[Rfam]
RNA: Small nucleolar RNA SNORD124
Organism: Tychaedon coryphoeus
RNA sequence: UCCCUCCCUGGAAGGGGUGAUGUGUCAGCACAGCCCAGAUAAGGAUUCUGAGUCCGUGUGAUGAAACUUGUGGAGUGCUCUGACCUUCCAUGGUGACGG
Numbered sequence: 001u002c003c004c005u006c007c008c009u010g011g012a013a014g015g016g017g018u019g020a021u022g023u024g025u026c027a028g029c030a031c032a033g034c035c036c037a038g039a040u041a042a043g044g045a046u047u048c049u050g051a052g053u054c055c056g057u058g059u060g061a062u063g064a065a066a067c068u069u070g071u072g073g074a075g076u077g078c079u080c081u082g083a084c085c086u087u088c089c090a091u092g093g094u095g096a097c098g099g
Stems, first nucleotide, its partner, number of pairs: 009090007